[Rfam]
RNA sequence: GGCCUUUGUGUUGCCCAGUCACUUUUGAGACUAGGGGAUGUGAUGUCAAAAAAAGGCAUGAAAUAAACGCUUUGCAGCCUUUUCUUGCCCUUAGAUUUGAUAUCUUUGGUGUAGGAGCUGCAUAAGUAACAGUU
Numbered sequence: 001g002g003c004c005u006u007u008g009u010g011u012u013g014c015c016c017a018g019u020c021a022c023u024u025u026u027g028a029g030a031c032u033a034g035g036g037g038a039u040g041u042g043a044u045g046u047c048a049a050a051a052a053a054a055g056g057c058a059u060g061a062a063a064u065a066a067a068c069g070c071u072u073u074g075c076a077g078c079c080u081u082u083u084c085u086u087g088c089c090c091u092u093a094g095a096u097u098u099g100a101u102a103u104c105u106u107u108g109g110u111g112u113a114g115g116a117g118c119u120g121c122a123u124a125a126g127u128a129a130c131a132g133u134u
Stems, first nucleotide, its partner, number of pairs: 002057006009048002012045002015042001016040002019037002022034002069127004073122006083116006089109002094103001

Small nucleolar RNA SNORA13: a 134-nucleotide RNA sequence from Propithecus coquereli. Its Rfam clan is "SNORA13 clan". Pairs were carried over by alignment from the consensus structure, which was predicted with CMfinder. The match comes from Rfam's covariance-model search (113 bits). The family has 50 seed sequences and 1,034 matches in Rfam 15.1. Rfam describes the family as follows. ACA13 is a member of the H/ACA class of snoRNA that guide the sites of modification of uridines to pseudouridines. By type it is an H/ACA-box small nucleolar RNA.